[Rfam]
RNA sequence: UCUUCCCUGCCGUGCUCGUGUUUGGCCUUAUAUUUCUUGGACCCAUGCUUAUGGCAUGAGGUUGUGGAAAUUGCCCGCGGGCGUGAUCGUCUCUCCGUCAGACGAACCCGAAGCGCGGCUGACCGCGACCACCUUGAACCCCGGUUCAAGAUGCCGGCCUAGCGACACAGGCGGGGAUCCU
Numbered sequence: 001u002c003u004u005c006c007c008u009g010c011c012g013u014g015c016u017c018g019u020g021u022u023u024g025g026c027c028u029u030a031u032a033u034u035u036c037u038u039g040g041a042c043c044c045a046u047g048c049u050u051a052u053g054g055c056a057u058g059a060g061g062u063u064g065u066g067g068a069a070a071u072u073g074c075c076c077g078c079g080g081g082c083g084u085g086a087u088c089g090u091c092u093c094u095c096c097g098u099c100a101g102a103c104g105a106a107c108c109c110g111a112a113g114c115g116c117g118g119c120u121g122a123c124c125g126c127g128a129c130c131a132c133c134u135u136g137a138a139c140c141c142c143g144g145u146u147c148a149a150g151a152u153g154c155c156g157g158c159c160u161a162g163c164g165a166c167a168c169a170g171g172c173g174g175g176g177a178u179c180c181u
Stems, first nucleotide, its partner, number of pairs: 004177008012168003017164003034151002038148006060130003064126004073119003077116003085108001087105005
Shown here is a 181-nucleotide sequence, a member of the family "6S / SsrS RNA". For this family Rfam cites "6S RNA in Rhodobacter sphaeroides: 6S RNA and pRNA transcript levels peak in late exponential phase and gene deletion causes a high salt stress phenotype" (Elkina et al., RNA Biol, 2017). E. coli 6S RNA was the first non coding RNA to be sequenced, but its function was unknown until recently. The family's RNA type in Rfam is non-coding RNA gene.